RNA sequence: GUAGGUUAUGGUGACAUGCACCCGGUGACCAUAGGGGGCAAGAUUGUGGGGUCACUGUGUGCCAUCGCAGGUGUCUUGACCAUUGCUUUGCCAGUCCCUGUAAUUGUUUCCAAC
Numbered sequence: 001g002u003a004g005g006u007u008a009u010g011g012u013g014a015c016a017u018g019c020a021c022c023c024g025g026u027g028a029c030c031a032u033a034g035g036g037g038g039c040a041a042g043a044u045u046g047u048g049g050g051g052u053c054a055c056u057g058u059g060u061g062c063c064a065u066c067g068c069a070g071g072u073g074u075c076u077u078g079a080c081c082a083u084u085g086c087u088u089u090g091c092c093a094g095u096c097c098c099u100g101u102a103a104u105u106g107u108u109u110c111c112a113a114c
Stems, first nucleotide, its partner, number of pairs: 001114002004111002008107004014101003018097001020095002037077002040074001049063002
Rfam assigns this 114-nucleotide RNA sequence from Cervus elaphus to the family "Potassium channel RNA editing signal". From the family's description: This family represents a group of sequences related to the human potassium channel Kv1.1 hairpin element which directs the efficient modification of an adenosine to inosine by an adenosine deaminase acting on RNA (ADAR). The ADAR modification causes an isoleucine/valine recoding event which lies in the ion-conducting pore of the potassium channel. It is thought that this editing event targets the process of fast inactivation and allows a more rapid recovery from inactivation at negative potentials.